[Rfam]
Nucleotides: 182
Stems, first nucleotide, its partner, number of pairs: 008026007029099003033093004051084004055079007117173001119171003124165005131160002134157005
Number, partner (000 for none) and nucleotide at each position: 001000u002000a003000u004000a005000a006000a007000a008026a009025u010024u011023a012022a013021u014020c015000g016000u017000g018000c019000g020014g021013a022012u023011u024010a025009a026008u027000a028000a029099u030098c031097c032000a033093g034092g035091a036090c037000u038000a039000u040000a041000a042000a043000a044000c045000c046000g047000u048000g049000u050000u051084g052083c053082u054081u055079g056078a057077a058076u059075c060074g061073a062000u063000u064000c065000u066000c067000u068000u069000c070000a071000a072000u073061u074060u075059g076058a077057u078056u079055c080000c081054a082053a083052g084051c085000g086000u087000c088000a089000a090036g091035u092034c093033c094000a095000c096000c097031g098030g099029a100000g101000a102000g103000a104000u105000u106000g107000a108000a109000a110000u111000u112000g113000u114000u115000c116000a117173u118000c119171u120170u121169a122000a123000u124165g125164c126163c127162c128161u129000u130000u131160u132159g133000u134157a135156u136155a137154u138153u139000c140000a141000a142000u143000c144000a145000a146000u147000u148000c149000u150000a151000c152000g153138a154137g155136u156135a157134u158000u159132c160131a161128a162127g163126g164125g165124c166000u167000g168000g169121u170120a171119g172000a173117a174000c175000a176000a177000a178000c179000a180000a181000c182000u
Shown here is a 182-nucleotide RNA sequence from Zygotorulaspora mrakii, a member of the family "Small nucleolar RNA snR35". By type it is an H/ACA-box small nucleolar RNA. The family's consensus secondary structure was predicted with WAR. Rfam links the family to the GO terms nucleolus and RNA processing. The match comes from Rfam's covariance-model search (149 bits).